[Rfam]
Nucleotides: 065
Base pairs, nucleotide, nucleotide: 012047013046014045015044016043017042024038025037026036027035028034052064053063054062055061
Number, partner (000 for none) and nucleotide at each position: 001000c002000g003000a004000g005000a006000a007000a008000a009000c010000u011000g012047g013046c014045c015044g016043a017042c018000u019000a020000a021000g022000a023000c024038g025037c026036c027035a028034c029000g030000u031000c032000c033000u034028g035027u036026g037025g038024c039000g040000a041000a042017g043016u044015c045014g046013g047012c048000a049000c050000u051000a052064g053063c054062a055061c056000u057000u058000c059000c060000u061055g062054u063053g064052c065000g
The family of this 65-nucleotide RNA from Bacillus sp. HNG is "Bacillaceae-1 RNA". The family's consensus secondary structure is taken from published work. Lineage of the source: Bacteria > Bacilli > Caryophanales > Bacillaceae > Bacillus.